[Rfam]
RNA sequence: ACGGCGGCCCGGUGAGGCCAAGGUCGAGCCGGAAGAGAAGGCCCGACCCCCCGAACCGGGCUACCCAGCACGGGUCCCGGUACCCACGCGUAGCACGUGCCGCUAUGAAGGCAGAAGUGUUGCGGGCCUGCGUAAUUGCGGUAAGCGGGCGACGAGUCGGCCCUUUGGGUUGGGGCCGCAGACGCAGCGCAUCGCGAGGACGCCGAGGCCAACCCACGCAACCCACCUGAGCACGCCUGGUAACCGGCGCCCCGUGCUAGCGGGCGGCGAAUCGAGCCAGUUUCGAAGCGCCGCCCGCUUCGUGUG
Numbered sequence: 001a002c003g004g005c006g007g008c009c010c011g012g013u014g015a016g017g018c019c020a021a022g023g024u025c026g027a028g029c030c031g032g033a034a035g036a037g038a039a040g041g042c043c044c045g046a047c048c049c050c051c052c053g054a055a056c057c058g059g060g061c062u063a064c065c066c067a068g069c070a071c072g073g074g075u076c077c078c079g080g081u082a083c084c085c086a087c088g089c090g091u092a093g094c095a096c097g098u099g100c101c102g103c104u105a106u107g108a109a110g111g112c113a114g115a116a117g118u119g120u121u122g123c124g125g126g127c128c129u130g131c132g133u134a135a136u137u138g139c140g141g142u143a144a145g146c147g148g149g150c151g152a153c154g155a156g157u158c159g160g161c162c163c164u165u166u167g168g169g170u171u172g173g174g175g176c177c178g179c180a181g182a183c184g185c186a187g188c189g190c191a192u193c194g195c196g197a198g199g200a201c202g203c204c205g206a207g208g209c210c211a212a213c214c215c216a217c218g219c220a221a222c223c224c225a226c227c228u229g230a231g232c233a234c235g236c237c238u239g240g241u242a243a244c245c246g247g248c249g250c251c252c253c254g255u256g257c258u259a260g261c262g263g264g265c266g267g268c269g270a271a272u273c274g275a276g277c278c279a280g281u282u283u284c285g286a287a288g289c290g291c292c293g294c295c296c297g298c299u300u301c302g303u304g305u306g
Stems, first nucleotide, its partner, number of pairs: 003065002006062007016052002022048001025045002028042003067258008077247005084240003088236003093232002098113004119222006125210005130203004136197006145190003149185003153181001158178007260298010272286003
Rfam assigns this 306-nucleotide RNA sequence from Mycolicibacterium thermoresistibile to the family "Mycobacterium smegmatis small RNA 1".
About the family: Mycobacterium smegmatis small RNA 1 is highly expressed during stationary phase of growth. Ms1 RNA directly interacts with RNA polymerase (RNAP), but in a different way than 6S, which is present in other bacteria.
On this family, see Hnilicova et al., Nucleic Acids Res 2014: "Ms1, a novel sRNA interacting with the RNA polymerase core in mycobacteria".
Rfam links the family to the GO term RNA polymerase binding.
NCBI's taxonomy places the organism under Bacteria, Bacillati, Actinomycetes, Mycobacterium, Mycolicibacterium thermoresistibile.